[Rfam]
RNA: Guanidine-I riboswitch aptamer
RNA sequence: UCGAAAGCUUUCUAGGGUUCCGUGGCGCAAAGUCAGUCUGGUCCGAGAGAAAGCGCACAGCAAGCUGUGUACACGGAAGGAUAAAAGCCUGGGAGUA
Numbered sequence: 001u002c003g004a005a006a007g008c009u010u011u012c013u014a015g016g017g018u019u020c021c022g023u024g025g026c027g028c029a030a031a032g033u034c035a036g037u038c039u040g041g042u043c044c045g046a047g048a049g050a051a052a053g054c055g056c057a058c059a060g061c062a063a064g065c066u067g068u069g070u071a072c073a074c075g076g077a078a079g080g081a082u083a084a085a086a087g088c089c090u091g092g093g094a095g096u097a
Stems, first nucleotide, its partner, number of pairs: 007054006015044002020041002022038001023035004055070006072092001074095001078090003